[Rfam]
A member of the RNA family "FMN riboswitch aptamer (RFN element)" from Schumannella sp. 10F1B-5-1, 123 nucleotides long.
RNA sequence: AAUGUGCUCCGGGGUCGGUGAAAAUCCGAGCCGGCGGUCAUAGUCCGCGAACCUCAUCCAGGUGAGGCCGAGCUGGUGGAAUUCCAGCGCCGACGGUGAAAGUCCGGAUGGGAGGAGCGCAGG
Numbered sequence: 001a002a003u004g005u006g007c008u009c010c011g012g013g014g015u016c017g018g019u020g021a022a023a024a025u026c027c028g029a030g031c032c033g034g035c036g037g038u039c040a041u042a043g044u045c046c047g048c049g050a051a052c053c054u055c056a057u058c059c060a061g062g063u064g065a066g067g068c069c070g071a072g073c074u075g076g077u078g079g080a081a082u083u084c085c086a087g088c089g090c091c092g093a094c095g096g097u098g099a100a101a102g103u104c105c106g107g108a109u110g111g112g113a114g115g116a117g118c119g120c121a122g123g
Stems, first nucleotide, its partner, number of pairs: 003121008016028003030103002032092002034048004043090002052067002072088005094106003
Source information
The RFN element is a highly conserved domain that is found frequently in the 5'-untranslated regions of prokaryotic mRNAs that encode for flavin mononucleotide (FMN) biosynthesis and transport proteins. This element is a metabolite-dependent riboswitch that directly binds FMN in the absence of proteins. The source organism's lineage runs through Bacteria, Actinomycetota, Micrococcales, Microbacteriaceae and Schumannella.